c-di-GMP-I riboswitch aptamer: an 88-nucleotide sequence from Niallia taxi. Pairs were carried over by alignment from the consensus structure, which is taken from published work. NCBI's taxonomy places the organism under Bacteria, Bacilli, Caryophanales, Bacillaceae, Niallia.

[Rfam]
RNA sequence: AUAUAUCUUUGGCAAACUCACUGAAAAGUGAGGACGCAAAGCUUCGGGUCUAAGGCAUUUUGAUAGCUAUGAUGGCUGAGCUGCAACA
Numbered sequence: 001a002u003a004u005a006u007c008u009u010u011g012g013c014a015a016a017c018u019c020a021c022u023g024a025a026a027a028g029u030g031a032g033g034a035c036g037c038a039a040a041g042c043u044u045c046g047g048g049u050c051u052a053a054g055g056c057a058u059u060u061u062g063a064u065a066g067c068u069a070u071g072a073u074g075g076c077u078g079a080g081c082u083g084c085a086a087c088a
Base pairs, nucleotide, nucleotide: 012037013036017032018031019030020029021028022027040082041081042080043079045078046077047076048073049072050071055067056066